[Rfam]
This 567-nucleotide part of an RNA from Dictyoglomus turgidum belongs to the Rfam family "Bacterial small subunit ribosomal RNA".
RNA sequence: CGGAUGGAGGGUUUGAUCCUGGCUCAGGACGAACGCUGGCGGCGUGCCUAAGGCAUGCAAGUCGAGCGGUAGCUCCUAUUGGUUAAAGCCGAUAGGAGUGAGAGCGGCGCACGGGUGAGUAACACGUAGGUAACCUACCCCAGAGAGGGGGAUAACACCUCGAAAGGGGUGCUAAACCCCCAUAUACUUACCGAGCGAGAUGCUCAGGUAAGGAAAGGGUAUAGAGGGGUAACCCUCUAUGCUGCUCUGGGAUGGGCCUGCGGCCUAUCAGCUAGUUGGUGGGGUAAAGGCCCACCAAGGCUAAGACGGGUAGCCGGCCUGAGAGGGUGGUCGGCCACACUGGGACUGAGACACGGCCCAGACUCCUACGGGAGGCAGCAGCCGGGAAUCUUCCGCAAUGGGGGAAACCCUGACGGAGCGACGCCGCGUGAGGGAAGAAGCCCUUCGGGGUGUAAACCUCUUUUCUCGGGGAAGAAGGCAUGACGGUACCCGAGGAAAAAGCCCCGGCUAACUACGUGCCAGCAGCCGCGGUAAGACGUAGGGGGCGAGCGUUGUCCGGAUUUACUG
Numbered sequence: 001c002g003g004a005u006g007g008a009g010g011g012u013u014u015g016a017u018c019c020u021g022g023c024u025c026a027g028g029a030c031g032a033a034c035g036c037u038g039g040c041g042g043c044g045u046g047c048c049u050a051a052g053g054c055a056u057g058c059a060a061g062u063c064g065a066g067c068g069g070u071a072g073c074u075c076c077u078a079u080u081g082g083u084u085a086a087a088g089c090c091g092a093u094a095g096g097a098g099u100g101a102g103a104g105c106g107g108c109g110c111a112c113g114g115g116u117g118a119g120u121a122a123c124a125c126g127u128a129g130g131u132a133a134c135c136u137a138c139c140c141c142a143g144a145g146a147g148g149g150g151g152a153u154a155a156c157a158c159c160u161c162g163a164a165a166g167g168g169g170u171g172c173u174a175a176a177c178c179c180c181c182a183u184a185u186a187c188u189u190a191c192c193g194a195g196c197g198a199g200a201u202g203c204u205c206a207g208g209u210a211a212g213g214a215a216a217g218g219g220u221a222u223a224g225a226g227g228g229g230u231a232a233c234c235c236u237c238u239a240u241g242c243u244g245c246u247c248u249g250g251g252a253u254g255g256g257c258c259u260g261c262g263g264c265c266u267a268u269c270a271g272c273u274a275g276u277u278g279g280u281g282g283g284g285u286a287a288a289g290g291c292c293c294a295c296c297a298a299g300g301c302u303a304a305g306a307c308g309g310g311u312a313g314c315c316g317g318c319c320u321g322a323g324a325g326g327g328u329g330g331u332c333g334g335c336c337a338c339a340c341u342g343g344g345a346c347u348g349a350g351a352c353a354c355g356g357c358c359c360a361g362a363c364u365c366c367u368a369c370g371g372g373a374g375g376c377a378g379c380a381g382c383c384g385g386g387a388a389u390c391u392u393c394c395g396c397a398a399u400g401g402g403g404g405a406a407a408c409c410c411u412g413a414c415g416g417a418g419c420g421a422c423g424c425c426g427c428g429u430g431a432g433g434g435a436a437g438a439a440g441c442c443c444u445u446c447g448g449g450g451u452g453u454a455a456a457c458c459u460c461u462u463u464u465c466u467c468g469g470g471g472a473a474g475a476a477g478g479c480a481u482g483a484c485g486g487u488a489c490c491c492g493a494g495g496a497a498a499a500a501g502c503c504c505c506g507g508c509u510a511a512c513u514a515c516g517u518g519c520c521a522g523c524a525g526c527c528g529c530g531g532u533a534a535g536a537c538g539u540a541g542g543g544g545g546c547g548a549g550c551g552u553u554g555u556c557c558g559g560a561u562u563u564a565c566u567g
Base pairs, nucleotide, nucleotide: 009025010024011023012022013021027557028556029555030554032553033552034551035550036549037548039427040426041425042424043423044422045420046419047385052383053382054381056380057379058378061108062107063106066105067104070100077094078093079092080091081090082089083088115338116337117336125262126261127260128259129258130257131256134255135254139251140250141249142248143247144246145245147181148180149179150178156171157170158169159168160167161166187212188211189210190209191208192207193205194204195203196202217243218242264310265309266308271301272300273299276298277297278296279295280294281293282292283291313335314334315333316332317328318327319326320325340361341360342359343358344357363374364373365372366371391417393416394415395414399412400411401410402409403408430460431459432458433457440451441450442449443448464498465494466493467492468491469490470489474484501546502545503544504543505542512541513540514539515538516537522529523528

The family has 99 seed sequences and 42,628 matches in Rfam 15.1. The family is grouped with related families in Rfam's "SSU clan".